[Rfam]
RNA sequence: AAACACCACUAGGGGUGCAUCAAAAGAUGCUGAGAGGAGCAAUUGCUCUGACCCUUUGAACUUGAUCUGGUUGAUACCAGCGUAAGGAAUGUGGGGAUGAAUUGGA
Dot-bracket structure: .....((((.((((..(((((....)))))......((((....))))...)))).....((((..((((......))))..))))....))))............
RNA: TPP riboswitch aptamer (THI element)